[Rfam]
RNA sequence: GAAGGUUUGGCCCUUCGGAGUCGCCCUGCUGGGGGAGGCUUCAAACCACCUCAUGCUGCAUUAGCUGAAGACUGUUGUGGUGAACGAUGGGGAAAAGGCAAUCCGUUCGAGAUUGUCAGGU
Number, nucleotide and partner (000 for none) at each position: 001g016002a015003a014004g013005g012006u000007u000008u000009g000010g000011c000012c005013c004014u003015u002016c001017g042018g041019a040020g039021u038022c037023g000024c035025c034026c033027u032028g000029c000030u000031g000032g027033g026034g025035g024036a000037g022038g021039c020040u019041u018042c017043a000044a000045a000046c000047c120048a000049c092050c091051u090052c089053a088054u087055g081056c080057u000058g078059c077060a076061u000062u074063a073064g072065c000066u000067g000068a000069a000070g000071a000072c064073u063074g062075u000076u060077g059078u058079g000080g056081u055082g000083a000084a000085c000086g000087a054088u053089g052090g051091g050092g049093a000094a000095a000096a000097g117098g116099c115100a114101a113102u112103c000104c000105g000106u000107u000108c000109g000110a000111g000112a102113u101114u100115g099116u098117c097118a000119g000120g047121u000
RNA: Group II catalytic intron D1-D4-2